[Rfam]
RNA: Mammalian CPEB3 ribozyme
RNA sequence: AGUUGCAAGCCCAAGGCCACAGAAGAAGUGCUCAUGGCAUGGCCAUGUCAGAUUCCAGUAAAUAUGUGAAUUUCGCU
Dot-bracket structure: ..............((((..[[..[[[(((.......)))))))....((.(((......))).))....]]]..]]